[Rfam]
RNA sequence: AGAACCUUUAAUGCAGUCCAGAGAGGCUACCAAGGUUGACCGUUUAAAAAAGGGAGUGUCCCUUGCUUUUUCGUGCAACCUUGCCUACUGGCAAGGUUUUUUUGAAU
Numbered sequence: 001a002g003a004a005c006c007u008u009u010a011a012u013g014c015a016g017u018c019c020a021g022a023g024a025g026g027c028u029a030c031c032a033a034g035g036u037u038g039a040c041c042g043u044u045u046a047a048a049a050a051a052g053g054g055a056g057u058g059u060c061c062c063u064u065g066c067u068u069u070u071u072c073g074u075g076c077a078a079c080c081u082u083g084c085c086u087a088c089u090g091g092c093a094a095g096g097u098u099u100u101u102u103u104g105a106a107u
Stems, first nucleotide, its partner, number of pairs: 003037006013030001015028004042072001046068002050064006073102001075100001077098009